[Rfam]
RNA sequence: UGACUUAUGAUGAAUUGUGUUUCCUGAGCACCAUGAGGUGAUGGUCAAUUGAAUAUUCUAAAGUCC
Numbered sequence: 001u002g003a004c005u006u007a008u009g010a011u012g013a014a015u016u017g018u019g020u021u022u023c024c025u026g027a028g029c030a031c032c033a034u035g036a037g038g039u040g041a042u043g044g045u046c047a048a049u050u051g052a053a054u055a056u057u058c059u060a061a062a063g064u065c066c
Base pairs, nucleotide, nucleotide: 002065003064004063005062012058013057014056020052021051025047026046027045029043

Small Nucleolar RNA SNORD64: a 66-nucleotide sequence from Molossus molossus.
It scores 51 bits against the family's covariance model.
Rfam classes the family as a C/D-box small nucleolar RNA.
The human snoRNA HBII-13 belongs to the C/D family of snoRNAs. It is expressed mainly in the brain, but is also in the lungs, the kidneys and muscle. HBII-13 snoRNA has no identified RNA target and is encoded together with HBII-436, HBII-437, HBII-438A/B and the clusters of HBII-85, HBII-52 snoRNA in a 460 kb intron of the large, paternally expressed, transcription unit (SNURF-SNRNP-UBE3A AS). This is antisense to maternally expressed UBE3A gene (Runt et al., 2001).
Rfam links the family to the GO terms nucleolus and RNA processing.